[Rfam]
RNA: Bacterial large subunit ribosomal RNA, nucleotides 1828 to 2195
Organism: Corynebacterium aquatimens
RNA sequence: CGGGUGAACUGUGGUUAAGGAACUCGGCAAAUUACCCCCGUAACUUCGGGAGAAGGGGGGCCAUAUCUGGUGAUCUGAACAUGCGUUGGUGAGCUGGAUGUGGCCGCAGAAAACAGAGGGGAGCGACUGUUUAUCAAAAACACAGGUCCGUGCGAAGACGUUGAAGUUGAUGUAUACGGACUGACGCCUGCCCGGUGCUGGAAGGUUAAGAGGACCUGUUAGGUAGUUUUACCGAAGCGGAGAAUUUAAGCCCCAGUAAACGGCGGUGGUAACUAUAACCAUCCUAAGGUAGCGAAAUUCCUUGUCGGGUAAGUUCCGACCUGCACGAAUGGCGUAACGACUCCCCUGCUGUCUCAACCACAGGCCCG
Numbered sequence: 001c002g003g004g005u006g007a008a009c010u011g012u013g014g015u016u017a018a019g020g021a022a023c024u025c026g027g028c029a030a031a032u033u034a035c036c037c038c039c040g041u042a043a044c045u046u047c048g049g050g051a052g053a054a055g056g057g058g059g060g061c062c063a064u065a066u067c068u069g070g071u072g073a074u075c076u077g078a079a080c081a082u083g084c085g086u087u088g089g090u091g092a093g094c095u096g097g098a099u100g101u102g103g104c105c106g107c108a109g110a111a112a113a114c115a116g117a118g119g120g121g122a123g124c125g126a127c128u129g130u131u132u133a134u135c136a137a138a139a140a141c142a143c144a145g146g147u148c149c150g151u152g153c154g155a156a157g158a159c160g161u162u163g164a165a166g167u168u169g170a171u172g173u174a175u176a177c178g179g180a181c182u183g184a185c186g187c188c189u190g191c192c193c194g195g196u197g198c199u200g201g202a203a204g205g206u207u208a209a210g211a212g213g214a215c216c217u218g219u220u221a222g223g224u225a226g227u228u229u230u231a232c233c234g235a236a237g238c239g240g241a242g243a244a245u246u247u248a249a250g251c252c253c254c255a256g257u258a259a260a261c262g263g264c265g266g267u268g269g270u271a272a273c274u275a276u277a278a279c280c281a282u283c284c285u286a287a288g289g290u291a292g293c294g295a296a297a298u299u300c301c302u303u304g305u306c307g308g309g310u311a312a313g314u315u316c317c318g319a320c321c322u323g324c325a326c327g328a329a330u331g332g333c334g335u336a337a338c339g340a341c342u343c344c345c346c347u348g349c350u351g352u353c354u355c356a357a358c359c360a361c362a363g364g365c366c367c368g
Stems, first nucleotide, its partner, number of pairs: 001368004009363008018354003035059005044049001060104012105109001117347007124339002128142003145182008153172001157168003185334004190264003195261002197257005204252003210246002216240004222233004265283006284288001294321001304320006